[Rfam]
RNA sequence: GGGUGCUUGAGGCUGUCUGGCGUUAAGCAUUCGCGAGGUUCCAGAUGGACAAAAGCCCCAGGCGAUAUUUCUAUCAACCUGAGGCUUACGUUCGAACCCAAACAAUUCGAAUGUUAGUCUCUUCUUUGCAGGGAGGCAAGACAUGCUGACAAAAUAUG
Numbered sequence: 001g002g003g004u005g006c007u008u009g010a011g012g013c014u015g016u017c018u019g020g021c022g023u024u025a026a027g028c029a030u031u032c033g034c035g036a037g038g039u040u041c042c043a044g045a046u047g048g049a050c051a052a053a054a055g056c057c058c059c060a061g062g063c064g065a066u067a068u069u070u071c072u073a074u075c076a077a078c079c080u081g082a083g084g085c086u087u088a089c090g091u092u093c094g095a096a097c098c099c100a101a102a103c104a105a106u107u108c109g110a111a112u113g114u115u116a117g118u119c120u121c122u123u124c125u126u127u128g129c130a131g132g133g134a135g136g137c138a139a140g141a142c143a144u145g146c147u148g149a150c151a152a153a154a155u156a157u158g
Base pairs, nucleotide, nucleotide: 001059002058003057005056006055007054008053011050013048014047015046016045017044018043019042020041022039024038060080061079062078064075065074066073067072081121082120083119084118085117088114089113090112091111092110093109094108095107096106125148
Rfam assigns this 158-nucleotide RNA sequence from Escherichia coli to the family "sok antitoxin (CssrC)". A reference for the family is Loh et al. (1988), "Nucleotide sequence and transcriptional analysis of a third function (Flm) involved in F-plasmid maintenance", Gene. Taxonomically the source falls in Escherichia coli (Bacteria, Pseudomonadota, Enterobacterales, Enterobacteriaceae). Rfam links the family to the GO term mRNA binding. Rfam describes the family as follows. Also identified in Shigella as CssrC. It is annotated as an antitoxin RNA.